The record is a 187-nucleotide sequence from Clostridium pasteurianum, which matches "Lysine riboswitch aptamer" in Rfam.
A search with the family's covariance model found it, with a score of 104 bits.
RNA sequence: ACCUAGGGUAGAGGUGCUGUAGUUAAGAGUAUUUAUUUGGAGUCGGUAGGCGUUGAUAAAUUAAAAAAGGAGUUACAGCCGAAGAAUAUAAGCCGACAGGAUUAUAUUCUGGCCUUACAUAAAAUAUAUGGAAGGUUGUCACUGAUGAAAUGCAAUAAUAUGCAUUGAGUGGAGAGCUACAGGGUAC
Numbered sequence: 001a002c003c004u005a006g007g008g009u010a011g012a013g014g015u016g017c018u019g020u021a022g023u024u025a026a027g028a029g030u031a032u033u034u035a036u037u038u039g040g041a042g043u044c045g046g047u048a049g050g051c052g053u054u055g056a057u058a059a060a061u062u063a064a065a066a067a068a069g070g071a072g073u074u075a076c077a078g079c080c081g082a083a084g085a086a087u088a089u090a091a092g093c094c095g096a097c098a099g100g101a102u103u104a105u106a107u108u109c110u111g112g113c114c115u116u117a118c119a120u121a122a123a124a125u126a127u128a129u130g131g132a133a134g135g136u137u138g139u140c141a142c143u144g145a146u147g148a149a150a151u152g153c154a155a156u157a158a159u160a161u162g163c164a165u166u167g168a169g170u171g172g173a174g175a176g177c178u179a180c181a182g183g184g185u186a187c
Stems, first nucleotide, its partner, number of pairs: 008180004016079009032064002035061005083110009093100002111137006118130004139172005145166001